Rfam assigns this 160-nucleotide RNA from Xanthomonas albilineans to the family "FMN riboswitch aptamer (RFN element)". The source organism's lineage runs through Bacteria, Pseudomonadati, Pseudomonadota, Lysobacteraceae and Xanthomonas albilineans. The match comes from Rfam's covariance-model search (110 bits).
RNA sequence: AAACGUCUUCAGGGCGGGGUGCGAUUCCCCACCGGCGGUAGGUGCGUUCGCGCACGAGCCCGCGAGCGCUUCCCACGGCCGCCUGUGCGGCGAUGGCAAGGUCAGCAGAUCCGGUGCGAUGCCGGAGCCGACGGUAUAGUCCGGAUGAAAGAAGACAGCU
Numbered sequence: 001a002a003a004c005g006u007c008u009u010c011a012g013g014g015c016g017g018g019g020u021g022c023g024a025u026u027c028c029c030c031a032c033c034g035g036c037g038g039u040a041g042g043u044g045c046g047u048u049c050g051c052g053c054a055c056g057a058g059c060c061c062g063c064g065a066g067c068g069c070u071u072c073c074c075a076c077g078g079c080c081g082c083c084u085g086u087g088c089g090g091c092g093a094u095g096g097c098a099a100g101g102u103c104a105g106c107a108g109a110u111c112c113g114g115u116g117c118g119a120u121g122c123c124g125g126a127g128c129c130g131a132c133g134g135u136a137u138a139g140u141c142c143g144g145a146u147g148a149a150a151g152a153a154g155a156c157a158g159c160u
Stems, first nucleotide, its partner, number of pairs: 005156006017029003031140002033130002035063004058128002066106002110126005132143003
The base pairs follow the family's consensus structure, which is taken from published work.